[Rfam]
RNA sequence: CCCCCAUGAGGAAAGCCGCACGUGUCUGACCCCCCCGCUGGGCCCAGGACCUGCGAAGGUGGAACCCCCUGGAGCCCCCGGGGGGAGAGGAGGCCGAGCAGUCCCGGAGGGGACGGACUGAGGGGG
Numbered sequence: 001c002c003c004c005c006a007u008g009a010g011g012a013a014a015g016c017c018g019c020a021c022g023u024g025u026c027u028g029a030c031c032c033c034c035c036c037g038c039u040g041g042g043c044c045c046a047g048g049a050c051c052u053g054c055g056a057a058g059g060u061g062g063a064a065c066c067c068c069c070u071g072g073a074g075c076c077c078c079c080g081g082g083g084g085g086a087g088a089g090g091a092g093g094c095c096g097a098g099c100a101g102u103c104c105c106g107g108a109g110g111g112g113a114c115g116g117a118c119u120g121a122g123g124g125g126g
Base pairs, nucleotide, nucleotide: 001125002124003123004122